Small nucleolar RNA snoR104: a 118-nucleotide RNA from Ipomoea nil. NCBI's taxonomy places the organism under Eukaryota, Streptophyta, eudicotyledons, asterids, Ipomoea. Rfam classes the family as an H/ACA-box small nucleolar RNA.

[Rfam]
RNA sequence: GGGGAGUCUUGAUAAGUUGAGAUGCUCCCUGAUUCAGUCUUCCUAAAAAGAAAUUCUGGGAUUUCCUGCUUGUGGUUCCUGAGCAUGUUCUGUGAGUCUCAAGUUACCAGAUACAUGU
Numbered sequence: 001g002g003g004g005a006g007u008c009u010u011g012a013u014a015a016g017u018u019g020a021g022a023u024g025c026u027c028c029c030u031g032a033u034u035c036a037g038u039c040u041u042c043c044u045a046a047a048a049a050g051a052a053a054u055u056c057u058g059g060g061a062u063u064u065c066c067u068g069c070u071u072g073u074g075g076u077u078c079c080u081g082a083g084c085a086u087g088u089u090c091u092g093u094g095a096g097u098c099u100c101a102a103g104u105u106a107c108c109a110g111a112u113a114c115a116u117g118u
Stems, first nucleotide, its partner, number of pairs: 001030003005026003009022002055111003068097008078087001